RNA sequence: UGGUAACACGAACCGGUGCUAAAGGGUCCCUGCCCUGACAGCACGGGGCAGGACCCUUUAGCACCGGUUCGUGUUAUGAA
Numbered sequence: 001u002g003g004u005a006a007c008a009c010g011a012a013c014c015g016g017u018g019c020u021a022a023a024g025g026g027u028c029c030c031u032g033c034c035c036u037g038a039c040a041g042c043a044c045g046g047g048g049c050a051g052g053a054c055c056c057u058u059u060a061g062c063a064c065c066g067g068u069u070c071g072u073g074u075u076a077u078g079a080a
Base pairs, nucleotide, nucleotide: 003077004076005075006074007073008072009071010070011069012068013067014066015065016064017063018062019061020060021059022058023057024056025055026054027053029052030051034047035046036045
Dot-bracket structure: ..(((((((((((((((((((((((((.((...(((........)))...)))))))))))))))))))))))))))...

MIR5387 microRNA precursor family: an 80-nucleotide sequence from Sorghum bicolor. Taxonomically the source falls in Sorghum (Eukaryota, Petrosaviidae, commelinids, Panicoideae). It scores 71 bits against the family's covariance model. The base pairs follow the family's consensus structure, which was predicted with RNAalifold. Gene Ontology terms of the family: RISC complex and miRNA-mediated post-transcriptional gene silencing.